Shown here is a 125-nucleotide RNA from Bos taurus, a member of the family "Small nucleolar RNA SNORA20". It scores 81 bits against the family's covariance model. ACA20 is a member of the H/ACA class of snoRNA that guide the sites of modification of uridines to pseudouridines. The family's RNA type in Rfam is H/ACA-box small nucleolar RNA. NCBI's taxonomy places the organism under Eukaryota, Euteleostomi, Dipnotetrapodomorpha, Mammalia, Bos.
RNA sequence: UUUACAAAAUAAUAGCCAUUAUAGUCUUUCAGUGAUAUGAGCAGUUAUACACAUGGGAUAAAAUAAUACUGGGCCAUUGUAAAUGGAGGUGAAGUCACCAUUUCAUCUCCAUGGUCUAGACACUG
Numbered sequence: 001u002u003u004a005c006a007a008a009a010u011a012a013u014a015g016c017c018a019u020u021a022u023a024g025u026c027u028u029u030c031a032g033u034g035a036u037a038u039g040a041g042c043a044g045u046u047a048u049a050c051a052c053a054u055g056g057g058a059u060a061a062a063a064u065a066a067u068a069c070u071g072g073g074c075c076a077u078u079g080u081a082a083a084u085g086g087a088g089g090u091g092a093a094g095u096c097a098c099c100a101u102u103u104c105a106u107c108u109c110c111a112u113g114g115u116c117u118a119g120a121c122a123c124u125g
Stems, first nucleotide, its partner, number of pairs: 003058001005056001007054001015045002019041002022037002025035002069119008078111002081108001086104006